The record is an 86-nucleotide sequence from Paenibacillus endophyticus, which matches "c-di-GMP-I riboswitch aptamer" in Rfam. NCBI's taxonomy places the organism under Bacteria, Bacillati, Bacillota, Paenibacillaceae, Paenibacillus. The match comes from Rfam's covariance-model search (71 bits). Pairs were carried over by alignment from the consensus structure, which is taken from published work.
[Rfam]
RNA sequence: CCUAGAUAAUAGCAAAGUUGCUGAAAGGCAAUGACGCAAAGCCAACAGACCUAAAGGAAAUGUCCAAAGGUGGCUGGGUUGCCAAA
Numbered sequence: 001c002c003u004a005g006a007u008a009a010u011a012g013c014a015a016a017g018u019u020g021c022u023g024a025a026a027g028g029c030a031a032u033g034a035c036g037c038a039a040a041g042c043c044a045a046c047a048g049a050c051c052u053a054a055a056g057g058a059a060a061u062g063u064c065c066a067a068a069g070g071u072g073g074c075u076g077g078g079u080u081g082c083c084a085a086a
Base pairs, nucleotide, nucleotide: 012037013036017032018031019030020029021028022027040080041079042078043077046076047075048074049071050070051069056065057064058063